[Rfam]
RNA sequence: CCACUCUGGAAAGCAGUCGAUUCCGUGUCGGCUCGCCCACGGUGUAACCCGCCCCGCCACGCGCAGGGCGGCGAAUCUCUCAGGCACCCAUGACAGAGGGGGA
Numbered sequence: 001c002c003a004c005u006c007u008g009g010a011a012a013g014c015a016g017u018c019g020a021u022u023c024c025g026u027g028u029c030g031g032c033u034c035g036c037c038c039a040c041g042g043u044g045u046a047a048c049c050c051g052c053c054c055c056g057c058c059a060c061g062c063g064c065a066g067g068g069c070g071g072c073g074a075a076u077c078u079c080u081c082a083g084g085c086a087c088c089c090a091u092g093a094c095a096g097a098g099g100g101g102g103a
Stems, first nucleotide, its partner, number of pairs: 001101002004098005015033006035085003039080001042079001044077001049071006

Record summary: Glycine riboswitch aptamer: a 103-nucleotide sequence from Serinibacter salmoneus. Taxonomically the source falls in Serinibacter (Bacteria, Actinomycetota, Actinomycetes, Beutenbergiaceae).